[Rfam]
RNA sequence: GAGUGAAAUGAUGCUCAACCAUCUUUCGGGACUUACCCAAAAAAUGGGGAUAACUUAUUUUUACUCCCUGAUCACUC
Numbered sequence: 001g002a003g004u005g006a007a008a009u010g011a012u013g014c015u016c017a018a019c020c021a022u023c024u025u026u027c028g029g030g031a032c033u034u035a036c037c038c039a040a041a042a043a044a045u046g047g048g049g050a051u052a053a054c055u056u057a058u059u060u061u062u063a064c065u066c067c068c069u070g071a072u073c074a075c076u077c
Stems, first nucleotide, its partner, number of pairs: 001077006
The family of this 77-nucleotide sequence from Kryptolebias marmoratus is "Small nucleolar RNA SNORD2". The family has 17 seed sequences and 1,116 matches in Rfam 15.1.